[Rfam]
RNA sequence: GCCCAGAUGAACAUCAGUAGUCUGGUGUACGGGCUUCAAACCCGGAGCUGAUGAGAGUCAGAGUGGCUCGAUUCCUUUGGGC
Number, nucleotide and partner (000 for none) at each position: 001g082002c081003c080004c079005a078006g077007a076008u000009g000010a000011a000012c027013a026014u025015c024016a023017g022018u000019a000020g000021u000022c017023u016024g015025g014026u013027g012028u046029a000030c044031g043032g042033g041034c000035u000036u000037c000038a000039a000040a000041c033042c032043c031044g030045g000046a028047g000048c061049u060050g059051a058052u057053g000054a000055g000056a000057g052058u051059c050060a049061g048062a000063g000064u000065g075066g074067c000068u000069c000070g000071a000072u000073u000074c066075c065076u007077u006078u005079g004080g003081g002082c001

Rfam assigns this 82-nucleotide RNA from Trichonephila clavata to the family "Selenocysteine transfer RNA". Its Rfam clan is "tRNA clan".